Background
Rfam assigns this 274-nucleotide sequence from Callithrix jacchus to the family "Mason-Pfizer monkey virus packaging signal". The family's consensus secondary structure was predicted with PFOLD. A reference for the family is Mustafa et al. (2004), "Mutational analysis of the predicted secondary RNA structure of the Mason-Pfizer monkey virus packaging signal", Virus Res. Rfam 15.1 lists 2,921 matches to the family in 53 species. About the family: This family represents a group of sequences that are related to the Mason-Pfizer monkey virus (MPMV) packaging signal. The packaging signal is located in the 5' UTR and is required for specific RNA encapsidation.
RNA sequence: UGGCGCCUAACGUGAGAGCUCGAGUACGAGGGACACAGUGAGGGAUGCCGUCGAGGUCAGCUGGCACAGAAGGAUUAAGAAACACGGAGGAAAGAGCAUCAUGGGAACCUGCCACGGACUCACGCUCCGGUAAGCAGACGGCGAAUAUGGGACAGGAAAUCAGCCAGCAUGAGUUGUUCAUAGAGUUUAAGUAAGGCUUUAAAGGCACGGGGAGUAAAGGUGAAAAUAAAACGAUUGUGUAAAUAUUUUGACUACUUUCAGGAUGUCUGCCCUU
Numbered sequence: 001u002g003g004c005g006c007c008u009a010a011c012g013u014g015a016g017a018g019c020u021c022g023a024g025u026a027c028g029a030g031g032g033a034c035a036c037a038g039u040g041a042g043g044g045a046u047g048c049c050g051u052c053g054a055g056g057u058c059a060g061c062u063g064g065c066a067c068a069g070a071a072g073g074a075u076u077a078a079g080a081a082a083c084a085c086g087g088a089g090g091a092a093a094g095a096g097c098a099u100c101a102u103g104g105g106a107a108c109c110u111g112c113c114a115c116g117g118a119c120u121c122a123c124g125c126u127c128c129g130g131u132a133a134g135c136a137g138a139c140g141g142c143g144a145a146u147a148u149g150g151g152a153c154a155g156g157a158a159a160u161c162a163g164c165c166a167g168c169a170u171g172a173g174u175u176g177u178u179c180a181u182a183g184a185g186u187u188u189a190a191g192u193a194a195g196g197c198u199u200u201a202a203a204g205g206c207a208c209g210g211g212g213a214g215u216a217a218a219g220g221u222g223a224a225a226a227u228a229a230a231a232c233g234a235u236u237g238u239g240u241a242a243a244u245a246u247u248u249u250g251a252c253u254a255c256u257u258u259c260a261g262g263a264u265g266u267c268u269g270c271c272c273u274u
Stems, first nucleotide, its partner, number of pairs: 006032003012027003085129005094121003100116001102114003135155001137153001142149002160201001162199001163197003208250005214244002218236002221233002260273003264269001